The record is a 103-nucleotide RNA sequence from Salibacterium qingdaonense, which matches "Purine riboswitch aptamer" in Rfam.

RNA sequence: AAAACGAUAAAUCAAUACUCUCAUAUAUCAUCGGGAAUACGGCCUGAUACGUUUCUACCCGGCGACCGUAAAUGGCCGGACUAUGAGAGAAAGAACGGCAGAA
Numbered sequence: 001a002a003a004a005c006g007a008u009a010a011a012u013c014a015a016u017a018c019u020c021u022c023a024u025a026u027a028u029c030a031u032c033g034g035g036a037a038u039a040c041g042g043c044c045u046g047a048u049a050c051g052u053u054u055c056u057a058c059c060c061g062g063c064g065a066c067c068g069u070a071a072a073u074g075g076c077c078g079g080a081c082u083a084u085g086a087g088a089g090a091a092a093g094a095a096c097g098g099c100a101g102a103a
Base pairs, nucleotide, nucleotide: 018089019088020087021086022085023084024083025082030048031047032046033045034044035043059079060078061077062076063075065073
A search with the family's covariance model found it, with a score of 81 bits.